The family of this 132-nucleotide RNA from Spermophilus dauricus is "Small nucleolar RNA SNORA72". A reference for the family is Ganot et al. (1997), "The family of box ACA small nucleolar RNAs is defined by an evolutionarily conserved secondary structure and ubiquitous sequence elements essential for RNA accumulation", Genes Dev. NCBI's taxonomy places the organism under Eukaryota, Tetrapoda, Sciuridae, Xerinae, Spermophilus. Rfam describes the family as follows. U72 is a member of the H/ACA class of snoRNAs. The family's RNA type in Rfam is H/ACA-box small nucleolar RNA.

RNA sequence: GUGCAAAUAUUCUCACUGUUCUGAUUUUGUAAUAAUCAGGAUAGGCUAAACAUAUGCUGUAUUAAGACCAUGCAUUUGUCCUCGGACCUACUUUAUUCUUUAGGUCUGGUUUUAUAAAUGCUGGUGAUAAAC
Numbered sequence: 001g002u003g004c005a006a007a008u009a010u011u012c013u014c015a016c017u018g019u020u021c022u023g024a025u026u027u028u029g030u031a032a033u034a035a036u037c038a039g040g041a042u043a044g045g046c047u048a049a050a051c052a053u054a055u056g057c058u059g060u061a062u063u064a065a066g067a068c069c070a071u072g073c074a075u076u077u078g079u080c081c082u083c084g085g086a087c088c089u090a091c092u093u094u095a096u097u098c099u100u101u102a103g104g105u106c107u108g109g110u111u112u113u114a115u116a117a118a119u120g121c122u123g124g125u126g127a128u129a130a131a132c
Base pairs, nucleotide, nucleotide: 003057004056005055016044017043018042019041020040021039022038023037024036025035026034067125068124069123070122072121073120082109083108084107085106086105087104088103089102090101